Overview: The record is a 146-nucleotide RNA sequence from Papaver somniferum, which matches "Small nucleolar RNA snoR136" in Rfam. It scores 67 bits against the family's covariance model. NCBI's taxonomy places the organism under Eukaryota, Viridiplantae, Euphyllophyta, Papaveraceae, Papaver. For this family Rfam cites "Mining small RNA sequencing data: a new approach to identify small nucleolar RNAs in Arabidopsis" (Chen and Wu, Nucleic Acids Res, 2009). The base pairs follow the family's consensus structure, which was predicted with mfold.
RNA sequence: UUAGCUUCAUCUGUUCUAUGAACAUUGUUGUAGCUAGGUUAAUCAAUUCUAGUGGCAUAUUUUUGUGGUGAAGCGAUAAAAAUUUGUUGCCCUCGCUAUCCGGUGCUUCUUGCUAUGUUGCAUUUGGACGUUGGGUAACUACAUUU
Numbered sequence: 001u002u003a004g005c006u007u008c009a010u011c012u013g014u015u016c017u018a019u020g021a022a023c024a025u026u027g028u029u030g031u032a033g034c035u036a037g038g039u040u041a042a043u044c045a046a047u048u049c050u051a052g053u054g055g056c057a058u059a060u061u062u063u064u065g066u067g068g069u070g071a072a073g074c075g076a077u078a079a080a081a082a083u084u085u086g087u088u089g090c091c092c093u094c095g096c097u098a099u100c101c102g103g104u105g106c107u108u109c110u111u112g113c114u115a116u117g118u119u120g121c122a123u124u125u126g127g128a129c130g131u132u133g134g135g136u137a138a139c140u141a142c143a144u145u146u
Base pairs, nucleotide, nucleotide: 001076002075004074005073008070009069010068011067018063020061021060029057030056031055033053034052037050038049086139087138088137089136090135091134092133094130095129099128100127101126102125103124109117